[Rfam]
mraW RNA: a 98-nucleotide RNA sequence from Salinibacterium sp. NCBI's taxonomy places the organism under Bacteria, Bacillati, Actinomycetes, Micrococcales, Salinibacterium. It is annotated as a cis-regulatory element. Rfam 15.1 lists 851 matches to the family in 821 species. It scores 61 bits against the family's covariance model.

RNA sequence: CCCGAUUCAUUGACGCUGACCCCCAGCCGUACGCCCUGGCUUUCUUCCCCGAUGCCAGGUCGCACCGGAUGGGGAUCAGCGUCAAUGACGAAGUAGCA
Number, nucleotide and partner (000 for none) at each position: 001c000002c000003c000004g000005a000006u000007u000008c000009a000010u085011u084012g083013a082014c081015g080016c079017u000018g077019a076020c000021c074022c073023c072024c071025a070026g000027c068028c067029g066030u000031a000032c062033g061034c000035c059036c058037u057038g056039g055040c054041u000042u052043u000044c000045u000046u000047c000048c000049c000050c000051g000052a042053u000054g040055c039056c038057a037058g036059g035060u000061c033062g032063c000064a000065c000066c029067g028068g027069a000070u025071g024072g023073g022074g021075a000076u019077c018078a000079g016080c015081g014082u013083c012084a011085a010086u000087g000088a000089c000090g000091a000092a000093g000094u000095a000096g000097c000098a000